[Rfam]
RNA sequence: UGCUAUGAUGGUGUAAUUUGCGUCUGAUCCUGUGAACAGUGACAGUUGCCUGCUGUCAUUAAGCUGUCACAGGUAGCUGAUGUAUGCUAAAUUCUGAGCA
Numbered sequence: 001u002g003c004u005a006u007g008a009u010g011g012u013g014u015a016a017u018u019u020g021c022g023u024c025u026g027a028u029c030c031u032g033u034g035a036a037c038a039g040u041g042a043c044a045g046u047u048g049c050c051u052g053c054u055g056u057c058a059u060u061a062a063g064c065u066g067u068c069a070c071a072g073g074u075a076g077c078u079g080a081u082g083u084a085u086g087c088u089a090a091a092u093u094c095u096g097a098g099c100a
Stems, first nucleotide, its partner, number of pairs: 001100003021082004030072005039064002041057005
A member of the RNA family "Small nucleolar RNA SNORD16" from Mola mola, 100 nucleotides long.
By type it is a C/D-box small nucleolar RNA.
Its family is annotated with nucleolus and RNA processing in the Gene Ontology.
It scores 93 bits against the family's covariance model.